[Rfam]
RNA: MIR535 microRNA precursor family
RNA sequence: UUACACGCUUGACAACGAGAGAGAGCACGCUGGUCAGCGCUCAUGGGAUGACUGCCAUGACUGUUUACUGGCGUGCUCUUUCUCGUUGUCAUCCAUUU
Dot-bracket structure: .........(((((.((..((.(.((((((((((................................)))))))))).).))..)).))))).......